RNA sequence: AAUCGAAUCGGCGAUGACGUUCGCCACAAAAUUAUAAUUUAAUUGAUGACGUCUACCACAAG
Numbered sequence: 001a002a003u004c005g006a007a008u009c010g011g012c013g014a015u016g017a018c019g020u021u022c023g024c025c026a027c028a029a030a031a032u033u034a035u036a037a038u039u040u041a042a043u044u045g046a047u048g049a050c051g052u053c054u055a056c057c058a059c060a061a062g
Stems, first nucleotide, its partner, number of pairs: 010025004016053006031043004
Dot-bracket structure: .........[[[[..((((((]]]].....((((.....))))....)))))).........

The family of this 62-nucleotide RNA sequence from Pediococcus claussenii is "Fluoride riboswitch aptamer (crcB RNA motif)". On this family, see Baker et al., Science 2012: "Widespread genetic switches and toxicity resistance proteins for fluoride". Its family is annotated with positive regulation of gene expression and response to fluoride in the Gene Ontology. The source organism's lineage runs through Bacteria, Bacillati, Bacillota, Bacilli and Pediococcus claussenii. The base pairs follow the family's consensus structure, which is taken from published work. The match comes from Rfam's covariance-model search (40 bits).